Small nucleolar RNA SNORA72: a 132-nucleotide RNA sequence from Pan troglodytes. NCBI's taxonomy places the organism under Eukaryota, Eumetazoa, Sarcopterygii, Hominidae, Pan. On this family, see Ganot et al., Genes Dev 1997: "The family of box ACA small nucleolar RNAs is defined by an evolutionarily conserved secondary structure and ubiquitous sequence elements essential for RNA accumulation". Pairs were carried over by alignment from the consensus structure, which was predicted with PFOLD. Rfam classes the family as an H/ACA-box small nucleolar RNA. Rfam's curators write: U72 is a member of the H/ACA class of snoRNAs. Its family is annotated with RNA processing and nucleolus in the Gene Ontology.
RNA sequence: CUGCAGAUAUUCUCACUGUUUUGAUUUUGUAAUAGUCAGGACAGGCUAACCAUUCACUUUAUUAAGACCAUGCAUAUAUCCCCAGAACUAGUUCUUUCCCGAGGUCUAGUUUUAUAAAUGUUGCUGAUAAAC
Numbered sequence: 001c002u003g004c005a006g007a008u009a010u011u012c013u014c015a016c017u018g019u020u021u022u023g024a025u026u027u028u029g030u031a032a033u034a035g036u037c038a039g040g041a042c043a044g045g046c047u048a049a050c051c052a053u054u055c056a057c058u059u060u061a062u063u064a065a066g067a068c069c070a071u072g073c074a075u076a077u078a079u080c081c082c083c084a085g086a087a088c089u090a091g092u093u094c095u096u097u098c099c100c101g102a103g104g105u106c107u108a109g110u111u112u113u114a115u116a117a118a119u120g121u122u123g124c125u126g127a128u129a130a131a132c
Stems, first nucleotide, its partner, number of pairs: 003057001016044011067125001069123002072121002082109001084107003088103002091100001